[Rfam]
Nucleotides: 178
Base pairs, nucleotide, nucleotide: 007172008171009170010169011168017083018082019081020080021079025075034067035066036065037064038063039062087114088113089112090111091110092109093108094107095106096105097104098103115141116140118138119137120136121135122134123133124132125131143163144162145161146160147159148158149157
Number, partner (000 for none) and nucleotide at each position: 001000a002000a003000c004000g005000a006000u007172a008171g009170u010169a011168g012000a013000g014000g015000u016000u017083g018082c019081g020080c021079u022000a023000a024000u025075u026000a027000u028000u029000a030000g031000u032000a033000g034067g035066u036065u037064a038063u039062a040000u041000g042000a043000u044000g045000u046000c047000c048000c049000g050000g051000a052000g053000g054000c055000a056000g057000a058000u059000g060000a061000c062039u063038a064037u065036a066035g067034c068000a069000g070000a071000a072000a073000g074000g075025a076000u077000g078000c079021a080020g081019c082018g083017c084000c085000g086000a087114a088113g089112g090111a091110g092109a093108u094107g095106g096105u097104u098103u099000c100000c101000g102000g103098a104097g105096a106095u107094u108093g109092u110091u111090u112089c113088c114087u115141g116140g117000g118138u119137a120136u121135g122134u123133g124132g125131u126000u127000a128000a129000c130000a131125g132124c133123c134122a135121u136120a137119u138118g139000a140116c141115u142000g143163u144162c145161a146160u147159a148158c149157a150000u151000a152000u153000u154000u155000u156000a157149u158148g159147u160146a161145u162144g163143g164000g165000g166000a167000g168011c169010u170009a171008c172007u173000u174000a175000u176000a177000a178000g
This 178-nucleotide RNA from Eubacterium sp. CAG:161 belongs to the Rfam family "Lysine riboswitch aptamer". Rfam links the family to the GO term lysine biosynthetic process. Taxonomically the source falls in Eubacterium (Bacteria, Bacillati, Clostridia, Eubacteriaceae).